[Rfam]
RNA sequence: AUAACUGAAUAGAAUAGACUUCAUAUAAAUUUGGAAAUAAGGUCCAGAAGUUUCUACCAAACUACCGUAAAUAGUUUGACUAUGAAGUACAGGUGAGAUUUU
Numbered sequence: 001a002u003a004a005c006u007g008a009a010u011a012g013a014a015u016a017g018a019c020u021u022c023a024u025a026u027a028a029a030u031u032u033g034g035a036a037a038u039a040a041g042g043u044c045c046a047g048a049a050g051u052u053u054c055u056a057c058c059a060a061a062c063u064a065c066c067g068u069a070a071a072u073a074g075u076u077u078g079a080c081u082a083u084g085a086a087g088u089a090c091a092g093g094u095g096a097g098a099u100u101u102u
Stems, first nucleotide, its partner, number of pairs: 018088008030048006058078007